The family of this 96-nucleotide sequence from Streptomyces avermitilis is "dauA ncRNA motif". It scores 62 bits against the family's covariance model. For this family Rfam cites "The discovery of novel noncoding RNAs in 50 bacterial genomes" (Narunsky et al., Nucleic Acids Res, 2024). Rfam links the family to the GO term regulation of gene expression. Rfam classes the family as a cis-regulatory element. Taxonomically the source falls in Streptomyces avermitilis (Bacteria, Bacillati, Streptomycetaceae, Streptomyces).

RNA sequence: ACGCCCGACCGUAGCGGAAGCGCGCCAAGAGGGGCCGGAAGCCCGGCGCCCCCUGUCUUCGCUGUCCGGGACGGUCUCCAGAACCGAGGCGUCAUG
Number, nucleotide and partner (000 for none) at each position: 001a092002c091003g090004c089005c088006c000007g000008a000009c000010c000011g000012u000013a000014g000015c068016g067017g066018a000019a063020g062021c061022g060023c000024g058025c000026c000027a000028a000029g000030a054031g053032g050033g049034g047035c046036c045037g044038g043039a000040a000041g000042c000043c038044c037045g036046g035047c034048g000049c033050c032051c000052c000053c031054u030055g000056u000057c000058u024059u000060c022061g021062c020063u019064g000065u000066c017067c016068g015069g000070g000071a000072c086073g085074g084075u000076c000077u000078c000079c000080a000081g000082a000083a000084c074085c073086g072087a000088g005089g004090c003091g002092u001093c000094a000095u000096g000
Rfam's curators write: dauA ncRNA motif was reported as a strong cis regulatory motif candidate, with potential to be a cis regulatory riboswitch type, it have been identified in genomes of the genus Streptomyces.